[Rfam]
RNA sequence: UGGGGAUGUCUCUUUCCCACUAUCAAUGGAGGCACUCGAUCAUACUGUGGGUUGAAAGACCUUAGACACAAGUUGUCGGUAGUGUGAUGUGAGGGCGGGUUAGAUGCCCA
Numbered sequence: 001u002g003g004g005g006a007u008g009u010c011u012c013u014u015u016c017c018c019a020c021u022a023u024c025a026a027u028g029g030a031g032g033c034a035c036u037c038g039a040u041c042a043u044a045c046u047g048u049g050g051g052u053u054g055a056a057a058g059a060c061c062u063u064a065g066a067c068a069c070a071a072g073u074u075g076u077c078g079g080u081a082g083u084g085u086g087a088u089g090u091g092a093g094g095g096c097g098g099g100u101u102a103g104a105u106g107c108c109c110a
Stems, first nucleotide, its partner, number of pairs: 001019004007034007035093004039088008049062005065077004097109004
RNA: epsC RNA